[Rfam]
RNA sequence: AAGUGAAAAAGGCAAAUCAUGGGAAACUGUGAGACGCAAAGCCAAGGGCCUGAACCACUAAAGUUAUUUAGAAAUAUGAAAAAAUAGACUAGUUGAUGUGCUUACUAUUCUUAAAUAUUUCUUAUGUGGAUGGCAGCCGGUUACCACG
Number, nucleotide and partner (000 for none) at each position: 001a000002a000003g000004u000005g000006a000007a000008a000009a000010a000011g000012g037013c036014a000015a000016a000017u032018c031019a030020u029021g028022g027023g000024a000025a000026a000027c022028u021029g020030u019031g018032a017033g000034a000035c000036g013037c012038a000039a000040a142041g141042c140043c139044a000045a000046g138047g137048g134049c133050c132051u000052g000053a000054a000055c129056c128057a127058c126059u000060a000061a000062a000063g000064u000065u000066a000067u000068u000069u000070a000071g000072a000073a000074a000075u000076a000077u000078g000079a000080a000081a000082a000083a000084a000085u000086a000087g000088a000089c000090u000091a000092g000093u000094u000095g000096a000097u000098g000099u000100g000101c000102u000103u000104a000105c000106u000107a000108u000109u000110c000111u000112u000113a000114a000115a000116u000117a000118u000119u000120u000121c000122u000123u000124a000125u000126g058127u057128g056129g055130a000131u000132g050133g049134c048135a000136g000137c047138c046139g043140g042141u041142u040143a000144c000145c000146a000147c000148g000

Rfam assigns this 148-nucleotide RNA sequence from Clostridium saccharobutylicum to the family "c-di-GMP-I riboswitch aptamer". The match comes from Rfam's covariance-model search (60 bits). Lineage of the source: Bacteria > Clostridia > Clostridiaceae > Clostridium > Clostridium saccharobutylicum.